[Rfam]
RNA sequence: GAGUGAAAUGAUGCUUCAUCUUUCGGGACUGAUUCAAUGAGAGAAACUUCUUUACUGAUCACUC
Numbered sequence: 001g002a003g004u005g006a007a008a009u010g011a012u013g014c015u016u017c018a019u020c021u022u023u024c025g026g027g028a029c030u031g032a033u034u035c036a037a038u039g040a041g042a043g044a045a046a047c048u049u050c051u052u053u054a055c056u057g058a059u060c061a062c063u064c
Base pairs, nucleotide, nucleotide: 001064002063003062004061005060006059
Rfam assigns this 64-nucleotide RNA sequence from Scyliorhinus torazame to the family "Small nucleolar RNA SNORD2". On this family, see Zhou et al., Gene 2004: "Identification of a novel box C/D snoRNA from mouse nucleolar cDNA library". It is annotated as a C/D-box small nucleolar RNA. The family's consensus secondary structure was predicted with WAR.